[Rfam]
RNA: Potassium channel RNA editing signal
Nucleotides: 115
Stems, first nucleotide, its partner, number of pairs: 002114001005112002008109005014103004019098001022095001038078004050064002
Number, partner (000 for none) and nucleotide at each position: 001000c002114u003000g004000c005112a006111g007000g008109u009108a010107u011106g012105g013000a014103g015102a016101c017100a018000u019098g020000g021000u022095c023000c024000c025000c026000a027000a028000g029000a030000c031000a032000a033000u034000a035000a036000u037000g038078g039077g040076c041075a042000a043000g044000a045000u046000u047000u048000u049000u050064g051063g052000c053000u054000c055000c056000a057000u058000c059000u060000g061000c062000u063051c064050c065000c066000u067000c068000a069000g070000u071000g072000g073000u074000g075041u076040g077039u078038u079000a080000g081000u082000g083000a084000u085000c086000g087000c088000u089000c090000u091000g092000c093000c094000c095022g096000u097000g098019c099000c100017u101016g102015u103014c104000a105012u106011c107010g108009u109008g110000u111006c112005u113000a114002a115000c